mir-184 microRNA precursor family: an 82-nucleotide sequence from Ladona fulva. Gene Ontology terms of the family: RISC complex and gene silencing by miRNA. On this family, see Chen et al., Genes Dev 2005: "The developmental miRNA profiles of zebrafish as determined by small RNA cloning".
RNA sequence: UUUCCCACGUUUCCUUAUCAUUCGCCUGUCCGGUGGGUUGUUUGACGAACUGGACGGAGAACUGAUAAGGGCUUGUGGGCAA
Numbered sequence: 001u002u003u004c005c006c007a008c009g010u011u012u013c014c015u016u017a018u019c020a021u022u023c024g025c026c027u028g029u030c031c032g033g034u035g036g037g038u039u040g041u042u043u044g045a046c047g048a049a050c051u052g053g054a055c056g057g058a059g060a061a062c063u064g065a066u067a068a069g070g071g072c073u074u075g076u077g078g079g080c081a082a
Stems, first nucleotide, its partner, number of pairs: 012071009021061003025057002029053002
It scores 66 bits against the family's covariance model.